The family of this 46-nucleotide RNA from Diachasma alloeum is "Histone 3' UTR stem-loop". The mRNAs of metazoan histone genes lack a poly-A tail. 3' end processing occurs at a site between a highly conserved stem-loop (modelled by this family) and a purine rich region around 20 nts downstream (the histone downstream element, or HDE). The stem-loop is bound by a 31 kDa stem-loop binding protein (SLBP - also termed the histone hairpin binding protein, or HBP). Together with U7 snRNA binding of the HDE, SLBP binding nucleate s the formation of the processing complex. The histone 3' UTR stem-loop is also involved in nucleocytoplasmic transport of the mRNA, and in stability regulation and translation efficiency in the cytoplasm. The family's RNA type in Rfam is cis-regulatory element.
[Rfam]
RNA sequence: CAAUCGGCUCUUUUCAGAGCCACAAUAAAUUUCUAACGUAUGAAUU
Numbered sequence: 001c002a003a004u005c006g007g008c009u010c011u012u013u014u015c016a017g018a019g020c021c022a023c024a025a026u027a028a029a030u031u032u033c034u035a036a037c038g039u040a041u042g043a044a045u046u
Stems, first nucleotide, its partner, number of pairs: 006021006
Notes: Lineage of the source: Eukaryota > Metazoa > Panarthropoda > Neoptera > Diachasma. The base pairs follow the family's consensus structure, which is taken from published work.